[Rfam]
RNA: Betaproteobacteria-1 RNA
Organism: Burkholderia pseudomallei
RNA sequence: CGCUUGCAUGGACGGGGGCUGAAUCCACCACUAGCGUGCAGGGGAUAGCCGAAACUAGUGGGAUAGCGUCUGAGAUAUCGGCAACGGGAUGGCGAAGCUAGCGUCCCGGAGGGCGCGUAGAGGCUGGCGGGC
Number, nucleotide and partner (000 for none) at each position: 001c044002g000003c042004u041005u040006g039007c038008a037009u036010g035011g000012a000013c000014g000015g000016g000017g000018g000019c000020u000021g000022a000023a000024u000025c000026c000027a000028c000029c000030a000031c058032u057033a056034g055035c010036g009037u008038g007039c006040a005041g004042g003043g000044g001045a000046u000047a000048g000049c081050c080051g079052a078053a000054a076055c034056u033057a032058g031059u000060g000061g000062g000063a000064u000065a000066g000067c112068g000069u110070c109071u000072g000073a000074g000075a000076u054077a000078u052079c051080g050081g049082c000083a000084a000085c108086g107087g106088g105089a104090u103091g000092g000093c000094g000095a000096a000097g128098c127099u126100a125101g124102c123103g090104u089105c088106c087107c086108g085109g070110a069111g000112g067113g000114c000115g000116c000117g000118u000119a000120g000121a000122g000123g102124c101125u100126g099127g098128c097129g000130g000131g000132c000